c-di-GMP-I-GGC riboswitch aptamer: an 82-nucleotide RNA sequence from Novipirellula herctigrandis. The family has 40 seed sequences and 1,298 matches in Rfam 15.1.
[Rfam]
RNA sequence: CACGACAAGUGGCAAACCAAACGUAAGUUUGGGACGCAAAGUCAUGGGUCCAUUCCACGAGUGGAUCGCCAGACUACCGAAG
Numbered sequence: 001c002a003c004g005a006c007a008a009g010u011g012g013c014a015a016a017c018c019a020a021a022c023g024u025a026a027g028u029u030u031g032g033g034a035c036g037c038a039a040a041g042u043c044a045u046g047g048g049u050c051c052a053u054u055c056c057a058c059g060a061g062u063g064g065a066u067c068g069c070c071a072g073a074c075u076a077c078c079g080a081a082g
Stems, first nucleotide, its partner, number of pairs: 001082001003079002012037002017032006035068001040075004045071003048066005